[Rfam]
RNA: MIR2655 microRNA precursor family
Organism: Trifolium subterraneum
Nucleotides: 231
Base pairs, nucleotide, nucleotide: 002229003228004227005226006225007224008223023208024207025206027204028203029202031200032199033198034197035196036195037194038193039192040191042189043188045186046185047184
Number, partner (000 for none) and nucleotide at each position: 001000c002229c003228c004227u005226u006225a007224u008223c009000u010000u011000u012000u013000a014000a015000a016000a017000g018000u019000u020000u021000c022000a023208a024207g025206u026000u027204g028203g029202u030000c031200c032199c033198u034197u035196a036195u037194c038193u039192u040191u041000a042189u043188u044000u045186u046185a047184g048000g049000u050000u051000u052000c053000a054000a055000g056000u057000u058000g059000g060000u061000c062000c063000c064000u065000u066000c067000c068000g069000u070000c071000a072000a073000u074000u075000u076000u077000u078000u079000a080000a081000c082000u083000a084000u085000u086000u087000c088000u089000a090000u091000u092000a093000a094000a095000u096000u097000u098000g099000g100000a101000c102000a103000c104000g105000u106000g107000g108000c109000a110000c111000a112000c113000u114000u115000g116000g117000a118000c119000a120000u121000a122000u123000g124000a125000c126000a127000c128000g129000u130000g131000u132000c133000c134000a135000c136000a137000u138000u139000u140000a141000a142000c143000g144000g145000u146000a147000a148000c149000a150000g151000u152000a153000c154000a155000a156000a157000a158000u159000u160000u161000g162000a163000c164000g165000g166000a167000a168000u169000g170000g171000a172000c173000c174000a175000a176000c177000u178000u179000g180000a181000a182000a183000c184047c185046u186045a187000a188043a189042a190000a191040a192039a193038a194037g195036a196035u197034a198033a199032g200031g201000g202029a203028c204027c205000a206025a207024c208023u209000u210000g211000a212000a213000a214000c215000u216000u217000u218000u219000a220000a221000a222000a223008g224007a225006u226005a227004a228003g229002g230000a231000c